[Rfam]
The family of this 108-nucleotide sequence from Acidipropionibacterium virtanenii is "mraW RNA". Pairs were carried over by alignment from the consensus structure, which is taken from published work. Lineage of the source: Bacteria > Actinomycetota > Actinomycetes > Propionibacteriaceae > Acidipropionibacterium. The family's RNA type in Rfam is cis-regulatory element.
Nucleotides: 108
Stems, first nucleotide, its partner, number of pairs: 011094006018087002021084004026079006034071004040065008
Number, partner (000 for none) and nucleotide at each position: 001000g002000a003000g004000g005000u006000c007000g008000c009000g010000c011094g012093g013092g014091g015090c016089g017000u018087g019086g020000c021084u022083u023082c024081g025000u026079c027078c028077c029076g030075a031074c032000a033000a034071c035070g036069a037068u038000u039000c040065c041064c042063u043062g044061a045060c046059g047058c048000a049000a050000c051000u052000u053000c054000c055000c056000c057000u058047g059046u060045g061044u062043c063042a064041g065040g066000u067000c068037g069036u070035c071034g072000c073000a074031g075030u076029c077028g078027g079026g080000c081024c082023g083022g084021a085000a086019c087018c088000u089016c090015g091014c092013c093012c094011c095000a096000c097000g098000g099000g100000a101000a102000c103000a104000u105000g106000u107000c108000a